[Rfam]
RNA: Gammaproteobacterial sRNA STnc100
Organism: Escherichia coli
RNA sequence: UCAGACUGAGCAUUUGUUAAAAAAAUUUCGCAUGGUGAAUCCCCCUGUGUGGAGGGGCGACUGGUGAAAAAUCCUUGCUUGUGAUUCAUUAUCGACACGGGUUCGGUGGUACCAGGCCGAACUCACCGGGAGGCACCCGGCACCAUGCAAUGGCACAUAGCGCCACUCUCCAGCCCCUCUCCGGAGGGGCUUUCUUAUGGAC
Numbered sequence: 001u002c003a004g005a006c007u008g009a010g011c012a013u014u015u016g017u018u019a020a021a022a023a024a025a026u027u028u029c030g031c032a033u034g035g036u037g038a039a040u041c042c043c044c045c046u047g048u049g050u051g052g053a054g055g056g057g058c059g060a061c062u063g064g065u066g067a068a069a070a071a072u073c074c075u076u077g078c079u080u081g082u083g084a085u086u087c088a089u090u091a092u093c094g095a096c097a098c099g100g101g102u103u104c105g106g107u108g109g110u111a112c113c114a115g116g117c118c119g120a121a122c123u124c125a126c127c128g129g130g131a132g133g134c135a136c137c138c139g140g141c142a143c144c145a146u147g148c149a150a151u152g153g154c155a156c157a158u159a160g161c162g163c164c165a166c167u168c169u170c171c172a173g174c175c176c177c178u179c180u181c182c183g184g185a186g187g188g189g190c191u192u193u194c195u196u197a198u199g200g201a202c
Stems, first nucleotide, its partner, number of pairs: 015155002030148008042057005064089003099124004104119003126140005160202001163199001172191007